[Rfam]
RNA sequence: UUGCACCUGUUGAUAGAAGGUUUCUUAAAAAACUUUUUUUUUUGAAACUGACUCAAUGGUGCACAAAGAAAAAGCUGUUUUGCAGCAACGGCCAGACAACCGUAGAGAUGGAUCCACAGAUGAGUAGUUUGUAAUACCACUCAUCUACUAUUUCUAUCUCACAUUC
Numbered sequence: 001u002u003g004c005a006c007c008u009g010u011u012g013a014u015a016g017a018a019g020g021u022u023u024c025u026u027a028a029a030a031a032a033c034u035u036u037u038u039u040u041u042u043u044g045a046a047a048c049u050g051a052c053u054c055a056a057u058g059g060u061g062c063a064c065a066a067a068g069a070a071a072a073a074g075c076u077g078u079u080u081u082g083c084a085g086c087a088a089c090g091g092c093c094a095g096a097c098a099a100c101c102g103u104a105g106a107g108a109u110g111g112a113u114c115c116a117c118a119g120a121u122g123a124g125u126a127g128u129u130u131g132u133a134a135u136a137c138c139a140c141u142c143a144u145c146u147a148c149u150a151u152u153u154c155u156a157u158c159u160c161a162c163a164u165u166c
Stems, first nucleotide, its partner, number of pairs: 002063005011055003016052001019049006027042004105160008122142004127137001
RNA: small nucleolar RNA snoR143